The family of this 72-nucleotide RNA from Armadillidium nasatum is "mir-219 microRNA precursor family".

[Rfam]
RNA sequence: UCCGGCACUGAUUGUCCAAACGCAAUUCUUGAUGAUUAAAGACAAGAACUGUGUCUGGACAUCUAUGCUUGA
Numbered sequence: 001u002c003c004g005g006c007a008c009u010g011a012u013u014g015u016c017c018a019a020a021c022g023c024a025a026u027u028c029u030u031g032a033u034g035a036u037u038a039a040a041g042a043c044a045a046g047a048a049c050u051g052u053g054u055c056u057g058g059a060c061a062u063c064u065a066u067g068c069u070u071g072a
Base pairs, nucleotide, nucleotide: 002071004069005068006067007066010063011062012061014060015059016058017057018056021053022052023051024050026048027047028046029045030044031043
The literature on the family includes a 2003 paper in Genome Biol by Lai et al., "Computational identification of Drosophila microRNA genes".
Rfam 15.1 lists 1,318 matches to the family in 774 species.
A search with the family's covariance model found it, with a score of 72 bits.